[Rfam]
RNA sequence: UGCUUAUCAAGAAAAGUGGAGGGAUUAGGCCCUGUGAAGCUUUGGCAACCAACUAUAAGUUUCGAAUAUUCGAAAUUGGAAAACCGGUGCUAAAUCCUAUUCCGUUUAUUCGGAAAAAGAUAAGUA
Numbered sequence: 001u002g003c004u005u006a007u008c009a010a011g012a013a014a015a016g017u018g019g020a021g022g023g024a025u026u027a028g029g030c031c032c033u034g035u036g037a038a039g040c041u042u043u044g045g046c047a048a049c050c051a052a053c054u055a056u057a058a059g060u061u062u063c064g065a066a067u068a069u070u071c072g073a074a075a076u077u078g079g080a081a082a083a084c085c086g087g088u089g090c091u092a093a094a095u096c097c098u099a100u101u102c103c104g105u106u107u108a109u110u111c112g113g114a115a116a117a118a119g120a121u122a123a124g125u126a
Stems, first nucleotide, its partner, number of pairs: 001126008013043005021032003026099004044091004049087002095118001100115005